[Rfam]
Vault RNA: a 97-nucleotide RNA sequence from Podarcis lilfordi.
On this family, see Stadler et al., Mol Biol Evol 2009: "Evolution of Vault RNAs".
The match comes from Rfam's covariance-model search (42 bits).
It is annotated as a non-coding RNA gene.
About the family: This family of RNAs are found as part of the enigmatic vault ribonucleoprotein complex. The complex consists of a major vault protein (MVP), two minor vault proteins (VPARP and TEP1), and several small untranslated RNA molecules. It has been suggested that the vault complex is involved in drug resistance.
RNA sequence: GAGCCAGCUCAGCCCAGAGGUUACAUCGACCAAAACUUUGCUUAGAUCCCCUAAUCGCUUCCAGCGGUUUAAGACCCGCGGGCGCUGCCUGACUUUA
Number, nucleotide and partner (000 for none) at each position: 001g000002a094003g093004c000005c091006a090007g089008c000009u000010c000011a000012g083013c082014c081015c080016a000017g079018a000019g077020g076021u000022u000023a000024c000025a000026u072027c000028g070029a069030c000031c000032a000033a000034a000035a000036c000037u000038u000039u000040g000041c000042u000043u000044a000045g000046a000047u000048c000049c000050c000051c000052u000053a000054a000055u000056c000057g000058c000059u000060u000061c000062c000063a000064g000065c000066g000067g000068u000069u029070u028071a000072a026073g000074a000075c000076c020077c019078g000079c017080g015081g014082g013083c012084g000085c000086u000087g000088c000089c007090u006091g005092a000093c003094u002095u000096u000097a000